Annotation
ctgf/hcs24 CAESAR: a 76-nucleotide RNA sequence from Jacana jacana. For this family Rfam cites "Involvement of cis-acting repressive element(s) in the 3'-untranslated region of human connective tissue growth factor gene" (Kubota et al., FEBS Lett, 1999).
[Rfam]
RNA sequence: ACGGAGACAUGGCGUGAGGCCCGGCAGGAGAGGCUUUAGCCAGAUUCUCGACUUGAACUGAUUUGCAUCUCAUUUU
Numbered sequence: 001a002c003g004g005a006g007a008c009a010u011g012g013c014g015u016g017a018g019g020c021c022c023g024g025c026a027g028g029a030g031a032g033g034c035u036u037u038a039g040c041c042a043g044a045u046u047c048u049c050g051a052c053u054u055g056a057a058c059u060g061a062u063u064u065g066c067a068u069c070u071c072a073u074u075u076u
Base pairs, nucleotide, nucleotide: 004071005070006069007068011021012020013019027066029064030063
Pairs were carried over by alignment from the consensus structure, which is taken from published work. About the family: The 3' UTR of human connective tissue growth factor/hypertrophic chondrocyte specific 24 (ctgf/hcs24) mRNA has been shown to repress ctgf gene expression. Reference identified a minimal RNA element, predicted to form a stable secondary structure, which acts as a post-transcriptional cis-acting element of structure-anchored repression (CAESAR), probably through direct interactions with as yet unknown nuclear factors. The family's RNA type in Rfam is cis-regulatory element. Lineage of the source: Eukaryota > Eumetazoa > Craniata > Coelurosauria > Jacana.